[Rfam]
The family of this 358-nucleotide RNA sequence from Pseudaminobacter salicylatoxidans is "Alphaproteobacteria transfer-messenger RNA". It is annotated as a non-coding RNA gene.
RNA sequence: GGCCUUUCAAUUUGCGCAAAGACUGCCUAUAUUCAGCCUGUCAGUUCGCCUGACUAUGGCAAUAAACGGGCGAUGAAAUAAGCCGUUCGGACCCGGGGGCGGUACCCGGCGCCUCCACCAAAAACCGCUCUUGAGGGAGCGGCUUUUGAUGGGGGCGAAACAGGAUCGACGAAGGUGUAAAGAUCGUACUUUUGCCCGGCAUUGUACCACCGUUAUCGGGCUAAACUUAUAGUUGCCAACGACAACUAUGCGGAAGCUCGUCUCGCUGCUUAAUGCGGCGCGAACGCUUCAAAUCAAGCCCUAGCGGUUCGCACCUCUAGGCGGGGUCCGGAGGCACCUGGCAACAGAAGCCUCCACU
Numbered sequence: 001g002g003c004c005u006u007u008c009a010a011u012u013u014g015c016g017c018a019a020a021g022a023c024u025g026c027c028u029a030u031a032u033u034c035a036g037c038c039u040g041u042c043a044g045u046u047c048g049c050c051u052g053a054c055u056a057u058g059g060c061a062a063u064a065a066a067c068g069g070g071c072g073a074u075g076a077a078a079u080a081a082g083c084c085g086u087u088c089g090g091a092c093c094c095g096g097g098g099g100c101g102g103u104a105c106c107c108g109g110c111g112c113c114u115c116c117a118c119c120a121a122a123a124a125c126c127g128c129u130c131u132u133g134a135g136g137g138a139g140c141g142g143c144u145u146u147u148g149a150u151g152g153g154g155g156c157g158a159a160a161c162a163g164g165a166u167c168g169a170c171g172a173a174g175g176u177g178u179a180a181a182g183a184u185c186g187u188a189c190u191u192u193u194g195c196c197c198g199g200c201a202u203u204g205u206a207c208c209a210c211c212g213u214u215a216u217c218g219g220g221c222u223a224a225a226c227u228u229a230u231a232g233u234u235g236c237c238a239a240c241g242a243c244a245a246c247u248a249u250g251c252g253g254a255a256g257c258u259c260g261u262c263u264c265g266c267u268g269c270u271u272a273a274u275g276c277g278g279c280g281c282g283a284a285c286g287c288u289u290c291a292a293a294u295c296a297a298g299c300c301c302u303a304g305c306g307g308u309u310c311g312c313a314c315c316u317c318u319a320g321g322c323g324g325g326g327u328c329c330g331g332a333g334g335c336a337c338c339u340g341g342c343a344a345c346a347g348a349a350g351c352c353u354c355c356a357c358u
Stems, first nucleotide, its partner, number of pairs: 040054005058196005068189001070187005083175002087172003093109005110157007197212003202223001204221001207219002324339004330355006
Dot-bracket structure: .......................................(((((.....)))))...(((((.....(.(((((........((..(((...(((((.......)))))(((((((..................................)))))))............))).)).......))))).)..)))))(((..[.[..[[.))).....]].].]....................................................................................................[[[[..((((((]]]]..........))))))...
On this family, see Williams and Bartel, RNA 1996: "Phylogenetic analysis of tmRNA secondary structure".
The source organism's lineage runs through Bacteria, Pseudomonadati, Hyphomicrobiales, Phyllobacteriaceae and Pseudaminobacter.
From the family's description: Bacterial tmRNA, also known as 10Sa RNA or SsrA, is named for its dual tRNA and mRNA-like properties. Its role is to liberate the mRNA from a stalled ribosome. To accomplish this part of the tmRNA is used as a reading frame that ends in a translation stop signal. The broken mRNA is replaced in the ribosome by the tmRNA and translation of the tmRNA leads to addition of a proteolysis tag to the incomplete protein enabling recognition by a protease. Recently a number of permuted tmRNA genes have been found encoded in two parts. tmRNAs have been identified in eubacteria and some chloroplasts but are absent from archaeal and eukaryote nuclear genomes.
A search with the family's covariance model found it, with a score of 315 bits.
The family is grouped with related families in Rfam's "tRNA clan".